[Rfam]
RNA sequence: UCAGGGUGGCGGCACCUGGGGGCAGCCCCAUGGUGGUGGCUGG
Numbered sequence: 001u002c003a004g005g006g007u008g009g010c011g012g013c014a015c016c017u018g019g020g021g022g023c024a025g026c027c028c029c030a031u032g033g034u035g036g037u038g039g040c041u042g043g
Stems, first nucleotide, its partner, number of pairs: 001033003005029002
Rfam assigns this 43-nucleotide RNA to the family "Prion pseudoknot".
Rfam classes the family as a cis-regulatory element.
About the family: This family represents a predicted pseudoknot structure found in prion protein mRNA. It has been suggested that the family has a possible effect in prion protein translation.